[Rfam]
RNA sequence: GGAAUCUGAUGAAUAAAAUUGGUCCGUGUUUCUGAACCAUCCGUGACAGAAAUUGAUACCGUUUUUCUGAUUCC
Numbered sequence: 001g002g003a004a005u006c007u008g009a010u011g012a013a014u015a016a017a018a019u020u021g022g023u024c025c026g027u028g029u030u031u032c033u034g035a036a037c038c039a040u041c042c043g044u045g046a047c048a049g050a051a052a053u054u055g056a057u058a059c060c061g062u063u064u065u066u067c068u069g070a071u072u073c074c
Stems, first nucleotide, its partner, number of pairs: 001074006

The family of this 74-nucleotide sequence from Amborella trichopoda is "Small nucleolar RNA SNORD18".
On this family, see Prislei et al., Nucleic Acids Res 1993: "Two different snoRNAs are encoded in introns of amphibian and human L1 ribosomal protein genes".
By type it is a C/D-box small nucleolar RNA.
Gene Ontology terms of the family: nucleolus and RNA processing.